[Rfam]
RNA sequence: GUGGCUGGGCUGGUGUGCGUUUGUGUGUAUAUGUGUGUGAGAGUGGUUGUGCGUGGAAGGUGCGUGCGUGCCGAGUGUGAGUGGACGCGUGGGAGCGCGCGUGCGCCCGCCCCUCUCCCCGCGCCUACACCUUGAUCUUAUUUGAUCGGGCCGCGCCCUCCGCCCCGCCGGGCCGCCCCGAGAUGAAAAGGCCCCCCUUCCGCGAAGCCCCCUCCGGGCGGGCGCUGUGCGGCAGGCCUCGGGGCGGGGCGGCGCCGCGGCUCGGGCCGCCUGGGCCUUCGGGCGCGGCGCUCAGAAGUGAUGAAUUGAUCAGAUAGACGAGGCCGGGCCUGGCCCGCGCCGCUGAUUACCGAUGCGAUUCUGAUCUGA
Numbered sequence: 001g002u003g004g005c006u007g008g009g010c011u012g013g014u015g016u017g018c019g020u021u022u023g024u025g026u027g028u029a030u031a032u033g034u035g036u037g038u039g040a041g042a043g044u045g046g047u048u049g050u051g052c053g054u055g056g057a058a059g060g061u062g063c064g065u066g067c068g069u070g071c072c073g074a075g076u077g078u079g080a081g082u083g084g085a086c087g088c089g090u091g092g093g094a095g096c097g098c099g100c101g102u103g104c105g106c107c108c109g110c111c112c113c114u115c116u117c118c119c120c121g122c123g124c125c126u127a128c129a130c131c132u133u134g135a136u137c138u139u140a141u142u143u144g145a146u147c148g149g150g151c152c153g154c155g156c157c158c159u160c161c162g163c164c165c166c167g168c169c170g171g172g173c174c175g176c177c178c179c180g181a182g183a184u185g186a187a188a189a190g191g192c193c194c195c196c197c198u199u200c201c202g203c204g205a206a207g208c209c210c211c212c213u214c215c216g217g218g219c220g221g222g223c224g225c226u227g228u229g230c231g232g233c234a235g236g237c238c239u240c241g242g243g244g245c246g247g248g249g250c251g252g253c254g255c256c257g258c259g260g261c262u263c264g265g266g267c268c269g270c271c272u273g274g275g276c277c278u279u280c281g282g283g284c285g286c287g288g289c290g291c292u293c294a295g296a297a298g299u300g301a302u303g304a305a306u307u308g309a310u311c312a313g314a315u316a317g318a319c320g321a322g323g324c325c326g327g328g329c330c331u332g333g334c335c336c337g338c339g340c341c342g343c344u345g346a347u348u349a350c351c352g353a354u355g356c357g358a359u360u361c362u363g364a365u366c367u368g369a
Base pairs, nucleotide, nucleotide: 045113046112050066051065052064053063054062055061083098086095088093101106141189142188143187146181147180148179149178152175153174155173158172159171160170162168163167215269216268217267219265221263222262224261225260226259229258230257232255233254236250237249238248239247240246271288272287273286275284276283277282293368294367295366296365303361304360305359306358307357308356322341323340324339327336328335
RNA: Small Cajal body-specific RNA 2